Annotation
Shown here is a 70-nucleotide RNA from Nylanderia fulva, a member of the family "mir-965 microRNA precursor family". Rfam 15.1 lists 224 matches to the family in 178 species. Rfam links the family to the GO terms RISC complex and miRNA-mediated post-transcriptional gene silencing. On this family, see Huang et al., Bioorg Khim 2012: "The regulation of silkworm fibroin L chain production by miRNA-965 and miRNA-1926 in insect cells".

[Rfam]
RNA sequence: CGCCGAAGGGGAAAAGCUAUACGCUUAUGGCUCAAUUUCUCAUAAUCGCUAUAACUUUUCCCCCUCGGAA
Numbered sequence: 001c002g003c004c005g006a007a008g009g010g011g012a013a014a015a016g017c018u019a020u021a022c023g024c025u026u027a028u029g030g031c032u033c034a035a036u037u038u039c040u041c042a043u044a045a046u047c048g049c050u051a052u053a054a055c056u057u058u059u060c061c062c063c064c065u066c067g068g069a070a
Stems, first nucleotide, its partner, number of pairs: 003068004009062003013058002018053004025045005